The record is a 99-nucleotide sequence from Pseudorhodobacter sp. E13, which matches "chrB-a RNA" in Rfam. The family has 163 seed sequences and 347 matches in Rfam 15.1. The family's RNA type in Rfam is cis-regulatory element. It scores 66 bits against the family's covariance model.
[Rfam]
RNA sequence: CCCAUGGGGCCCGCGAACGCCCCGUGAGGCGGCAGGCCCAAGCAUCGCAUCCCAAACCUCACAGGCCCGAAAGGGCCGUUUUGCACAGGAUGCCCCAUG
Numbered sequence: 001c002c003c004a005u006g007g008g009g010c011c012c013g014c015g016a017a018c019g020c021c022c023c024g025u026g027a028g029g030c031g032g033c034a035g036g037c038c039c040a041a042g043c044a045u046c047g048c049a050u051c052c053c054a055a056a057c058c059u060c061a062c063a064g065g066c067c068c069g070a071a072a073g074g075g076c077c078g079u080u081u082u083g084c085a086c087a088g089g090a091u092g093c094c095c096c097a098u099g
Base pairs, nucleotide, nucleotide: 005024006023007022008021009020010019047093048092049091050090051089052088